[Rfam]
RNA sequence: UCCGGGGAUAGGGUAGCUCCCGACAAGGCGGACCUCCUGCACCGCCUUCCCACGGAUCACUUUGAGGA
Numbered sequence: 001u002c003c004g005g006g007g008a009u010a011g012g013g014u015a016g017c018u019c020c021c022g023a024c025a026a027g028g029c030g031g032a033c034c035u036c037c038u039g040c041a042c043c044g045c046c047u048u049c050c051c052a053c054g055g056a057u058c059a060c061u062u063u064g065a066g067g068a
Stems, first nucleotide, its partner, number of pairs: 001056004006051002011021003027046005035068004040064001
RNA: int-alpA RNA